[Rfam]
RNA sequence: CUAAUACUGUUGCUAAUAUGCAACUCUAGUGUAUUUAAAUUGGAAUUGCACUUUAGCAAUGGUGAUGG
Dot-bracket structure: ....((((((((((((..(((((.((((............)))).)))))..))))))))))))....
The family of this 68-nucleotide sequence from Sylvietta virens is "mir-367 microRNA precursor family". NCBI's taxonomy places the organism under Eukaryota, Opisthokonta, Amniota, Sylvioidea, Sylvietta. A search with the family's covariance model found it, with a score of 90 bits. Pairs were carried over by alignment from the consensus structure, which was predicted with RNAalifold. On this family, see Mineno et al., Nucleic Acids Res 2006: "The expression profile of microRNAs in mouse embryos".